[Rfam]
RNA sequence: GUUGGGAGAUGAUGAUAAAAUUUAAACAAAUCACCAGAGGCAUCUGCUCUGCUGACAAUCUAUUUUGCACGUCAGUCUGAUCCCAUU
Numbered sequence: 001g002u003u004g005g006g007a008g009a010u011g012a013u014g015a016u017a018a019a020a021u022u023u024a025a026a027c028a029a030a031u032c033a034c035c036a037g038a039g040g041c042a043u044c045u046g047c048u049c050u051g052c053u054g055a056c057a058a059u060c061u062a063u064u065u066u067g068c069a070c071g072u073c074a075g076u077c078u079g080a081u082c083c084c085a086u087u
Stems, first nucleotide, its partner, number of pairs: 001087001003085005
Dot-bracket structure: (.(((((.........................................................................))))).)
RNA: Small nucleolar RNA Z122
Organism: Manihot esculenta